A member of the RNA family "GlmZ RNA activator of glmS mRNA" from a Plautia stali symbiont, 198 nucleotides long. For this family Rfam cites "The small RNA GlmY acts upstream of the sRNA GlmZ in the activation of glmS expression and is subject to regulation by polyadenylation in Escherichia coli" (Reichenbach et al., Nucleic Acids Res, 2008). This RNA was discovered in E. coli during a large scale screen. The sraJ gene was expressed in early logarithmic phase, but its level decreased with cell growth. Specific cleavage products of this RNA were found. Identified in Yersinia pseudotuberculosis as Ysr248/153/sR016. By type it is a small RNA. NCBI's taxonomy places the organism under Bacteria, Pseudomonadota, Gammaproteobacteria, Enterobacterales, Enterobacteriaceae.
[Rfam]
RNA sequence: GUAGAUGCUCAUUCCACCUCUUAUGUUUGCGGAUGCAACAUAAACCUAGGAAUGAUGCAGAGCCCCUUACGGUAUCCGUUGUCCAGCUGGCAGUAACGUGCACGCGCUACUGCAGUAAGAAGGACAUUACGUUGAGUCGGAUACCAUCAGUUGUCUUACCUACCUGAUGUUACACCUGCUUCUGGCAGGUGUUUUUUU
Numbered sequence: 001g002u003a004g005a006u007g008c009u010c011a012u013u014c015c016a017c018c019u020c021u022u023a024u025g026u027u028u029g030c031g032g033a034u035g036c037a038a039c040a041u042a043a044a045c046c047u048a049g050g051a052a053u054g055a056u057g058c059a060g061a062g063c064c065c066c067u068u069a070c071g072g073u074a075u076c077c078g079u080u081g082u083c084c085a086g087c088u089g090g091c092a093g094u095a096a097c098g099u100g101c102a103c104g105c106g107c108u109a110c111u112g113c114a115g116u117a118a119g120a121a122g123g124a125c126a127u128u129a130c131g132u133u134g135a136g137u138c139g140g141a142u143a144c145c146a147u148c149a150g151u152u153g154u155c156u157u158a159c160c161u162a163c164c165u166g167a168u169g170u171u172a173c174a175c176c177u178g179c180u181u182c183u184g185g186c187a188g189g190u191g192u193u194u195u196u197u198u
Stems, first nucleotide, its partner, number of pairs: 001063002006059003009055004015050001017049001019042001022038001027035001071145007081125004090113004153163002172192009